[Rfam]
The family of this 132-nucleotide RNA sequence from Micromonospora sonchi is "c-di-AMP riboswitch aptamer (ydaO/yuaA leader)". Lineage of the source: Bacteria > Bacillati > Actinomycetota > Micromonosporales > Micromonospora.
RNA sequence: GCGGUACCGCCGCCCAAUCGCCACCAGGCGAACCGGGGACCCAGGUACGUGGGGUGAAUCCGCGACAGCGGUAGGGGCCGCUUCCGUCCCGAACCCGUCAGCUAACCCGGUCGGCGGUCGAUGGAAGGGAAA
Dot-bracket structure: ..........((((...(((........)))((((((....((......))(((.....((((....))))..((((.........))))...))).........)))))).))))................

Pairs were carried over by alignment from the consensus structure.